Rfam assigns this 600-nucleotide part of an RNA from Entamoeba invadens to the family "Eukaryotic small subunit ribosomal RNA".
Lineage of the source: Eukaryota > Evosea > Mastigamoebida > Endamoebidae > Entamoeba.
Pairs were carried over by alignment from the consensus structure, which is taken from published work.
Nucleotides: 600
Stems, first nucleotide, its partner, number of pairs: 004020005022599001024597008033474005040466001041433001047431003051428003056089002062086002068081001096386003106309003111304001115302002121297004136165001142158001144156004175186004191254001193252002196249001205242004224233003265290003270286003311357003318348003323345008361383003365376004388409002391406003411422004439464001441463003447459004479506001480504010517529003542588006555582004564571002
Number, partner (000 for none) and nucleotide at each position: 001000u002000a003000u004020c005019u006018g007017g008016u009000u010000g011000a012000u013000c014000c015000u016008g017007c018006c019005a020004g021000u022599a023000u024597u025596a026595u027594a028593u029592g030591c031590u032000g033474a034473u035472a036471u037470u038000a039000a040466a041433g042000g043000c044000u045000a046000a047431g048430c049429c050000a051428u052427g053426c054000a055000u056089g057088u058000c059000u060000a061000a062086g063085u064000a065000c066000a067000a068081a069000g070000u071000c072000c073000u074000a075000g076000a077000a078000g079000g080000a081068u082000g083000a084000a085063a086062c087000c088057g089056u090000g091000a092000a093000c094000g095000g096386c097385u098384c099000a100000u101000u102000a103000c104000a105000a106309c107308a108307g109000u110000c111304a112000u113000a114000g115302u116301a117000g118000a119000g120000u121297u122296a123295a124294u125000u126000u127000u128000a129000a130000a131000g132000a133000a134000a135000a136165g137000g138000a139000u140000a141000u142158u143000c144156c145155a146154g147153u148000g149000a150000a151000u152000u153147a154146u155145u156144g157000a158142g159000u160000u161000a162000a163000u164000a165136c166000c167000a168000c169000u170000g171000a172000a173000a174000a175186g176185c177184u178183u179000a180000c181000g182000a183178g184177a185176g186175u187000a188000g189000a190000a191254u192000c193252u194251u195000g196249u197000g198000a199000g200000g201000u202000u203000g204000a205242a206241a207240a208239g209000u210000u211000g212000c213000g214000c215000g216000u217000g218000u219000a220000a221000u222000u223000u224233u225232u226231c227000a228000u229000a230000a231226g232225g233224a234000u235000a236000u237000u238000u239208u240207u241206u242205u243000g244000a245000g246000u247000a248000a249196a250000a251194a252193g253000u254191a255000c256000c257000a258000g259000c260000c261000a262000c263000a264000a265290u266289a267288g268000a269000u270286g271285a272284a273000c274000c275000u276000g277000g278000u279000u280000a281000a282000g283000u284272u285271u286270u287000a288267c289266u290265a291000g292000u293000a294124a295123u296122u297121a298000a299000c300000a301116u302115a303000c304111u305000u306000u307108c308107u309106g310000a311357u312356c313355u314000a315000u316000c317000a318348a319347u320346u321000u322000g323345u324344u325343g326342g327341u328340a329339g330338u331000a332000u333000a334000g335000a336000g337000g338330a339329c340328u341327a342326c343325c344324a345323a346320g347319a348318u349000u350000a351000u352000u353000a354000c355313g356312g357311a358000u359000g360000a361383c362382g363381a364000g365376g366375a367374a368373u369000u370000a371000g372000g373368g374367u375366u376365u377000g378000a379000c380000a381363u382362c383361g384098g385097a386096g387000a388409g389408g390000g391406a392405g393404c394000u395000u396000u397000c398000a399000a400000g401000a402000u403000g404393g405392c406391u407000a408389c409388c410000a411422c412421u413420u414419c415000u416000a417000a418000g419414g420413a421412a422411g423000g424000c425000a426053g427052c428051a429049g430048g431047c432000g433041c434000g435000c436000a437000a438000a439464u440000u441463a442462c443461c444000c445000a446000a447459u448458g449457g450456g451000a452000g453000a454000c455000c456450c457449u458448u459447g460000a461443g462442g463441u464439a465000g466040u467000g468000a469000c470037g471036a472035u473034a474033u475000a476000u477000a478000a479506c480504u481503c482502a483501a484500g485499u486498a487497a488496g489495a490000g491000a492000u493000a494000a495489u496488c497487u498486u499485g500484u501483u502482u503481g504480a505000a506479g507000g508000g509000a510000u511000g512000a513000a514000g515000a516000c517529g518528g519527u520000a521000u522000a523000a524000a525000g526000u527519a528518c529517c530000g531000u532000a533000c534000g535000a536000a537000a538000u539000c540000g541000a542588u543587u544586a545585g546584a547583g548000g549000g550000c551000a552000a553000g554000u555582c556581u557580g558579g559000u560000g561000c562000c563000a564571g565570c566000a567000g568000c569000c570565g571564c572000g573000g574000u575000a576000a577000u578000u579558c580557c581556a582555g583547c584546u585545c586544u587543a588542a589000a590031a591030g592029u593028g594027u595026a596025u597024a598000u599022u600000a